[Rfam]
RNA sequence: CCAAAGGCUCUUUUCAGAGCCAUAAAAAAAUAAAAAUUAAAAAAAA
Numbered sequence: 001c002c003a004a005a006g007g008c009u010c011u012u013u014u015c016a017g018a019g020c021c022a023u024a025a026a027a028a029a030a031u032a033a034a035a036a037u038u039a040a041a042a043a044a045a046a
Stems, first nucleotide, its partner, number of pairs: 006021006
RNA: Histone 3' UTR stem-loop